[Rfam]
RNA sequence: CAGGCUCCGGUUCACGUCGUCGCGACAUGCGGCGGCGACCCGGCGGCC
Numbered sequence: 001c002a003g004g005c006u007c008c009g010g011u012u013c014a015c016g017u018c019g020u021c022g023c024g025a026c027a028u029g030c031g032g033c034g035g036c037g038a039c040c041c042g043g044c045g046g047c048c
Stems, first nucleotide, its partner, number of pairs: 003048003007043004015037009